[Rfam]
Nucleotides: 272
Stems, first nucleotide, its partner, number of pairs: 007103002015098004026086006040076002051073006106153001107151005155173005190233007238269004249265005
Number, partner (000 for none) and nucleotide at each position: 001000c002000u003000a004000a005000a006000g007103g008102c009000g010000g011000a012000g013000a014000a015098g016097g017096a018095c019000a020000u021000c022000a023000g024000u025000a026086a027085a028084a029083g030082g031081g032000a033000a034000u035000c036000c037000u038000u039000g040076g041075u042000a043000c044000u045000c046000a047000g048000a049000g050000a051073g052072u053071c054070g055069g056068u057000g058000g059000a060000u061000g062000g063000u064000g065000c066000g067000a068056a069055c070054c071053g072052a073051u074000g075041g076040c077000g078000g079000g080000a081031c082030c083029u084028u085027u086026u087000g088000a089000a090000u091000u092000a093000c094000a095018g096017u097016c098015u099000g100000g101000a102008g103007c104000c105000g106153u107151c108150c109149g110148g111147g112000g113000g114000a115000a116000c117000g118000g119000a120000u121000a122000c123000a124000a125000g126000c127000g128000u129000c130000a131000a132000g133000c134000c135000u136000u137000g138000u139000c140000c141000a142000a143000g144000u145000a146000g147111u148110c149109c150108g151107g152000c153106a154000c155173c156172g157171g158170g159169u160000a161000c162000g163000a164000u165000a166000a167000g168000c169159g170158c171157c172156c173155g174000u175000u176000a177000u178000u179000u180000g181000a182000a183000u184000g185000a186000a187000g188000c189000g190233a191232a192231g193230g194229c195228u196227c197000u198000g199000a200000a201000u202000c203000g204000u205000c206000c207000u208000g209000u210000u211000u212000c213000a214000g215000a216000a217000u218000g219000g220000c221000g222000g223000c224000a225000a226000g227196g228195a229194g230193c231192u232191u233190u234000a235000a236000c237000u238269a239268g240267g241266g242000u243000g244000g245000u246000a247000c248000c249265g250264c251263g252262a253261g254000u255000c256000u257000c258000u259000u260000u261253c262252u263251c264250g265249u266241c267240c268239c269238u270000u271000g272000g
This 272-nucleotide RNA sequence from Paenibacillus durus belongs to the Rfam family "T-box leader". The family's RNA type in Rfam is cis-regulatory leader. Uncharged tRNA acts as the effector for transcription antitermination of genes in the T-box leader family. T-boxes are found upstream of many aminoacyl-tRNA synthetase genes and some amino acid biosynthetic genes usually in Gram-positive bacteria. The anticodon of a specific tRNA base pairs to a specifier sequence within the T-box motif, and the NCCA acceptor tail of the tRNA base pairs to a conserved bulge in the T-box antiterminator hairpin. The match comes from Rfam's covariance-model search (112 bits).